Shown here is a 103-nucleotide RNA from Virgibacillus sp. MSP4-1, a member of the family "SAM riboswitch aptamer (S box leader)". Rfam's curators write: The SAM riboswitch is found upstream of a number of genes which code for proteins involved in methionine or cysteine biosynthesis in Gram-positive bacteria. The source organism's lineage runs through Bacteria, Bacilli, Caryophanales, Bacillaceae and Virgibacillus.
[Rfam]
RNA sequence: AGGAUAUCCAGAGUGACUGAGAGAUCUGGCUCGUCGACGUCACAGCAACCUGCUUUACGCAAGGUGCUCCUACCAGCAAAGCCUGUGCUUUGAAUGAUAGAUA
Numbered sequence: 001a002g003g004a005u006a007u008c009c010a011g012a013g014u015g016a017c018u019g020a021g022a023g024a025u026c027u028g029g030c031u032c033g034u035c036g037a038c039g040u041c042a043c044a045g046c047a048a049c050c051u052g053c054u055u056u057a058c059g060c061a062a063g064g065u066g067c068u069c070c071u072a073c074c075a076g077c078a079a080a081g082c083c084u085g086u087g088c089u090u091u092g093a094a095u096g097a098u099a100g101a102u103a
Stems, first nucleotide, its partner, number of pairs: 002102001005099004013043005021032003026076004044068004049064002051061003072095001077092006